Bacterial small signal recognition particle RNA: a 95-nucleotide sequence from Actinocatenispora rupis. Lineage of the source: Bacteria > Actinomycetota > Micromonosporales > Micromonosporaceae > Actinocatenispora. Its Rfam clan is "SRP clan". It scores 62 bits against the family's covariance model. The family's RNA type in Rfam is non-coding RNA gene. The base pairs follow the family's consensus structure, which is taken from published work.
RNA sequence: CCAGCCCCUCGUGCGGCGCUCAUCUCGUCAACUCCCCCAGGGCCGGAAGGCAGCAAGGGUACGCGAGCUCUGGCGGGUGCACGGGGGGCCCUUUC
Numbered sequence: 001c002c003a004g005c006c007c008c009u010c011g012u013g014c015g016g017c018g019c020u021c022a023u024c025u026c027g028u029c030a031a032c033u034c035c036c037c038c039a040g041g042g043c044c045g046g047a048a049g050g051c052a053g054c055a056a057g058g059g060u061a062c063g064c065g066a067g068c069u070c071u072g073g074c075g076g077g078u079g080c081a082c083g084g085g086g087g088g089c090c091c092u093u094u095c
Stems, first nucleotide, its partner, number of pairs: 004089010014077001017075004024067005034059003042051003